Shown here is a 50-nucleotide RNA from Oculatella sp. FACHB-28, a member of the family "Nitrogen stress-induced RNA 1".
[Rfam]
RNA sequence: UGGUAGAUGCACCCUGAUUUAAUCCCUGGCUUCGGCUGGGGAUUUUCUUU
Numbered sequence: 001u002g003g004u005a006g007a008u009g010c011a012c013c014c015u016g017a018u019u020u021a022a023u024c025c026c027u028g029g030c031u032u033c034g035g036c037u038g039g040g041g042a043u044u045u046u047c048u049u050u
Stems, first nucleotide, its partner, number of pairs: 002013003023042008
The family's RNA type in Rfam is small RNA. A search with the family's covariance model found it, with a score of 55 bits. The family has 17 seed sequences and 962 matches in Rfam 15.1.